This 102-nucleotide sequence from Senegalia massiliensis belongs to the Rfam family "Purine riboswitch aptamer". It scores 89 bits against the family's covariance model. The family's consensus secondary structure is taken from published work. Lineage of the source: Bacteria > Bacillati > Bacillota > Eubacteriales > Senegalia.
RNA sequence: AAAACUUAAUAAACGAUUACUCAUAUAUACUCUGGAAUAUGGCCAGAAAGUCUCUACCGGACAACCAUAAAUUGUCUGACUAUGAGUGGAAAACUUAGGAUA
Dot-bracket structure: .................((((((((.....(((((.......)))))..........(((((((.......)))))))..))))))))..............